Annotation
The record is a 124-nucleotide RNA from Bacilli bacterium VT-13-104, which matches "PyrR binding site" in Rfam. A reference for the family is Bonner et al. (2001), "Molecular recognition of pyr mRNA by the Bacillus subtilis attenuation regulatory protein PyrR", Nucleic Acids Res. The organism belongs to Bacilli, within Bacteria. Gene Ontology terms of the family: pyrimidine nucleobase transport and pyrimidine nucleobase biosynthetic process. It is annotated as a cis-regulatory element. About the family: This family represents the PyrR binding site and terminator structure. This RNA structure is found upstream of a variety of genes involved in pyrimidine biosynthesis and transport. The alignment also includes a portion of the antiterminator structure.

RNA sequence: GGUACCUUUAAAUCAGUCCAGAGAGGCUGACAAGGACAACGGAAAUGAAGAUGGGAUGAUUAUGCUUAGAUCAAUCCUAUCUUUGACUGGGCUUCUUGUCAGAAAUGGCAAGGAGCCUUUUUUU
Numbered sequence: 001g002g003u004a005c006c007u008u009u010a011a012a013u014c015a016g017u018c019c020a021g022a023g024a025g026g027c028u029g030a031c032a033a034g035g036a037c038a039a040c041g042g043a044a045a046u047g048a049a050g051a052u053g054g055g056a057u058g059a060u061u062a063u064g065c066u067u068a069g070a071u072c073a074a075u076c077c078u079a080u081c082u083u084u085g086a087c088u089g090g091g092c093u094u095c096u097u098g099u100c101a102g103a104a105a106u107g108g109c110a111a112g113g114a115g116c117c118u119u120u121u122u123u124u
Stems, first nucleotide, its partner, number of pairs: 005035004013030006049082008057073005089118013